Rfam assigns this 130-nucleotide RNA sequence from Flintibacter hominis to the family "THF (Tetrahydrofolate) riboswitch aptamer". The organism belongs to Flintibacter, within Bacteria. The family has 101 seed sequences and 747 matches in Rfam 15.1. A reference for the family is Trausch et al. (2011), "The structure of a tetrahydrofolate-sensing riboswitch reveals two ligand binding sites in a single aptamer", Structure.

[Rfam]
RNA sequence: GGCAGAGUAGGAUCACACGUGCUGGCCGGGUUCCGGCCUUUAGUGUCGGCGGGACGGGGAGUUGUCCGCCGGACGAACAGCGGUACCGCGCAAGCGGCCCGCGGCAGUGGGUGGUCCGCAUCCCGCUGCC
Numbered sequence: 001g002g003c004a005g006a007g008u009a010g011g012a013u014c015a016c017a018c019g020u021g022c023u024g025g026c027c028g029g030g031u032u033c034c035g036g037c038c039u040u041u042a043g044u045g046u047c048g049g050c051g052g053g054a055c056g057g058g059g060a061g062u063u064g065u066c067c068g069c070c071g072g073a074c075g076a077a078c079a080g081c082g083g084u085a086c087c088g089c090g091c092a093a094g095c096g097g098c099c100c101g102c103g104g105c106a107g108u109g110g111g112u113g114g115u116c117c118g119c120a121u122c123c124c125g126c127u128g129c130c
Stems, first nucleotide, its partner, number of pairs: 001130005010117007018109002020106003043074002046072008057123003061119001078103001080102004